Shown here is a 69-nucleotide sequence from Eptatretus burgeri, a member of the family "mir-129 microRNA precursor family". Pairs were carried over by alignment from the consensus structure, which was predicted with RNAalifold. For this family Rfam cites "New microRNAs from mouse and human" (Lagos-Quintana et al., RNA, 2003).
[Rfam]
RNA sequence: GCCGAUCUUUUUGCGGUCUGGGCUUGCUGUUCGUGUAAGCCAGUAAGCCCUUACCCCAAAAAGGAUCGG
Numbered sequence: 001g002c003c004g005a006u007c008u009u010u011u012u013g014c015g016g017u018c019u020g021g022g023c024u025u026g027c028u029g030u031u032c033g034u035g036u037a038a039g040c041c042a043g044u045a046a047g048c049c050c051u052u053a054c055c056c057c058a059a060a061a062a063g064g065a066u067c068g069g
Base pairs, nucleotide, nucleotide: 007063008062009061010060011059012058013057015055016054017053020050021049022048023047025045027043028042